[Rfam]
RNA sequence: UGACCACACCGCAGUGCCGCGCUCCGUGUAUUUGACAAGCUGAGUUGGACACUCCGUGUGGUUGAGUGUCAGUUUGUCAAAUACCCUAAGUGAGGCAUUGCUCAGC
Dot-bracket structure: ...................((((..(.((((((((((((((......((((.((.........)).)))))))))))))))))).)..))))..............
Numbered sequence: 001u002g003a004c005c006a007c008a009c010c011g012c013a014g015u016g017c018c019g020c021g022c023u024c025c026g027u028g029u030a031u032u033u034g035a036c037a038a039g040c041u042g043a044g045u046u047g048g049a050c051a052c053u054c055c056g057u058g059u060g061g062u063u064g065a066g067u068g069u070c071a072g073u074u075u076g077u078c079a080a081a082u083a084c085c086c087u088a089a090g091u092g093a094g095g096c097a098u099u100g101c102u103c104a105g106c
Stems, first nucleotide, its partner, number of pairs: 020092004026086001028084014048070004053065002
The record is a 106-nucleotide RNA from Ornithorhynchus anatinus, which matches "mir-223 microRNA precursor family" in Rfam. The base pairs follow the family's consensus structure, which was predicted with RNAalifold. It scores 106 bits against the family's covariance model.